Rfam assigns this 59-nucleotide RNA sequence from Intrasporangium chromatireducens to the family "msiK RNA". The base pairs follow the family's consensus structure, which is taken from published work. The family has 120 seed sequences and 1,374 matches in Rfam 15.1.

RNA sequence: GGUCGGCACCUUUACAACGGAUCGUCCGGCACGUUCCUGCCGGUGAAGGAAAGGCAAAG
Numbered sequence: 001g002g003u004c005g006g007c008a009c010c011u012u013u014a015c016a017a018c019g020g021a022u023c024g025u026c027c028g029g030c031a032c033g034u035u036c037c038u039g040c041c042g043g044u045g046a047a048g049g050a051a052a053g054g055c056a057a058a059g
Stems, first nucleotide, its partner, number of pairs: 009049006026043006

Source information: A search with the family's covariance model found it, with a score of 59 bits. The source organism's lineage runs through Bacteria, Actinomycetes, Micrococcales, Intrasporangiaceae and Intrasporangium chromatireducens.